[Rfam]
The family of this 124-nucleotide RNA sequence is "atpB RNA". The family's RNA type in Rfam is cis-regulatory element.

RNA sequence: CACGGGCCCCCGCGAUGAUGUGCGACGGAAUCCGCGGUGGGCUAUGCACAUAGACCUCCAUCGCACCGUUUUCUGUUUGGCAGAAAGCGGCCCGAACACGGGAGAGAACGCUGAGCGUUACAAC
Numbered sequence: 001c002a003c004g005g006g007c008c009c010c011c012g013c014g015a016u017g018a019u020g021u022g023c024g025a026c027g028g029a030a031u032c033c034g035c036g037g038u039g040g041g042c043u044a045u046g047c048a049c050a051u052a053g054a055c056c057u058c059c060a061u062c063g064c065a066c067c068g069u070u071u072u073c074u075g076u077u078u079g080g081c082a083g084a085a086a087g088c089g090g091c092c093c094g095a096a097c098a099c100g101g102g103a104g105a106g107a108a109c110g111c112u113g114a115g116c117g118u119u120a121c122a123a124c
Base pairs, nucleotide, nucleotide: 001046002045004043005042007040008039010037011036012035066090067089068088069087070086071085072084073083074082075081